Group II catalytic intron D1-D4-2: a 117-nucleotide sequence. Pairs were carried over by alignment from the consensus structure. On this family, see Chu et al., EMBO J 2001: "Control of branch-site choice by a group II intron". Rfam's curators put it in the seed alignment.
RNA sequence: GGGAGUGUGGCCUCCCGGAGCCGGCCUGCAGGGGCAGGCUCCAAACCACCCCAUGCUGCUGCGUCCAAAAGGUGCGGUAGUGAGCGAUGGGGAAAAGGCGGACAUGAUCCGUCAGGU
Dot-bracket structure: (((((......)))))((((((.((((....)))).))))))....(.((((((((.(((.((((.....)))).))).)).....))))))....(((((.......)))))..).